[Rfam]
The family of this 51-nucleotide sequence from Paraglaciecola polaris is "L31-Gammaproteobacteria ribosomal protein leader".
Its Rfam clan is "Ribosomal Protein L31 Leader clan".
A reference for the family is Eckert and Weinberg (2020), "Discovery of 20 novel ribosomal leader candidates in bacteria and archaea", BMC Microbiol.
It is one of the family's seed sequences.
RNA sequence: CGUAUGGUGUUCAACUUCGGGUUGGAUAGCGAUACGGCCUUACUUUAAGGG
Numbered sequence: 001c002g003u004a005u006g007g008u009g010u011u012c013a014a015c016u017u018c019g020g021g022u023u024g025g026a027u028a029g030c031g032a033u034a035c036g037g038c039c040u041u042a043c044u045u046u047a048a049g050g051g
Stems, first nucleotide, its partner, number of pairs: 001036005007030002011025006